[Rfam]
RNA: tRNA
Organism: Candidatus Omnitrophus magneticus
RNA sequence: GGCGCGGUGGCCGAGCAGUUAGGUAGCGGUCUGCAAAACCGUGUACACCGGUGCGAAUCCGGUCCGCGCCU
Number, nucleotide and partner (000 for none) at each position: 001g070002g069003c068004g067005c066006g065007g064008u000009g000010g024011c023012c022013g000014a000015g000016c000017a000018g000019u000020u000021a000022g012023g011024u010025a000026g042027c041028g040029g039030u038031c000032u000033g000034c000035a000036a000037a000038a030039c029040c028041g027042u026043g000044u000045a000046c000047a063048c062049c061050g060051g059052u000053g000054c000055g000056a000057a000058u000059c051060c050061g049062g048063u047064c007065c006066g005067c004068g003069c002070c001071u000